[Rfam]
The family of this 123-nucleotide RNA from Zingiber officinale is "MIR390 microRNA precursor family".
The family's consensus secondary structure was predicted with WAR.
Rfam links the family to the GO terms RISC complex and miRNA-mediated post-transcriptional gene silencing.
The organism belongs to Zingiber, within Eukaryota.

RNA sequence: AGGAAGCAUCGAUAAAGCUCAGGAGGGAUAGCGCCAUUGAUGGAUAAUUAUAGAGAACUGGUGUUAAGUUGCUCCAUCCUCAUCUAUUGGCGCUAUCUAUCCUGAGUUUCAUGGGCUCUUCCU
Dot-bracket structure: .........(.....(((((((((.((((((((((.....................................................)))))))))).))))))))).....).........